[Rfam]
RNA sequence: UGACCAAGGGGCCGGGGCGUUGCGAUCAAGGGAGUGAUUGAAGCGUCCUAGGAGUACAGGGAGUACUCCCCAUGUGGGCCGGGUCAGGCAAGCC
Number, nucleotide and partner (000 for none) at each position: 001u086002g085003a084004c083005c082006a000007a000008g000009g000010g080011g079012c078013c077014g049015g048016g047017g046018c045019g000020u043021u042022g000023c040024g039025a038026u037027c036028a000029a000030g000031g000032g000033a000034g000035u000036g027037a026038u025039u024040g023041a000042a021043g020044c000045g018046u017047c016048c015049u014050a000051g069052g068053a067054g066055u065056a064057c063058a000059g000060g000061g000062a000063g057064u056065a055066c054067u053068c052069c051070c000071c000072a000073u000074g000075u000076g000077g013078g012079c011080c010081g000082g005083g004084u003085c002086a001087g000088g000089c000090a000091a000092g000093c000094c000